[Rfam]
RNA sequence: GCAAUUUCGGCAGGGCCUACCUCCUCCCAGGCCCUGACGGAUACGGUCAAUCUUUACCUCCUCCCAAAGAUUGACCAUCAAAACGGCGCCCGCCGCAUCCUCCUCCCAGCGGCGGGCGUUGUUU
Numbered sequence: 001g002c003a004a005u006u007u008c009g010g011c012a013g014g015g016c017c018u019a020c021c022u023c024c025u026c027c028c029a030g031g032c033c034c035u036g037a038c039g040g041a042u043a044c045g046g047u048c049a050a051u052c053u054u055u056a057c058c059u060c061c062u063c064c065c066a067a068a069g070a071u072u073g074a075c076c077a078u079c080a081a082a083a084c085g086g087c088g089c090c091c092g093c094c095g096c097a098u099c100c101u102c103c104u105c106c107c108a109g110c111g112g113c114g115g116g117c118g119u120u121g122u123u124u
Base pairs, nucleotide, nucleotide: 007040008039009038011036012035013034014033015032016031017030045076046075047074048073049072050071051070052069053068054067086119087118088117089116090115091114092113093112094111095110096109

Shown here is a 124-nucleotide RNA from Mesorhizobium hungaricum, a member of the family "Alphaproteobacterial ar14". Rfam links the family to the GO term biological process involved in symbiotic interaction. NCBI's taxonomy places the organism under Bacteria, Alphaproteobacteria, Hyphomicrobiales, Phyllobacteriaceae, Mesorhizobium. By type it is a small RNA.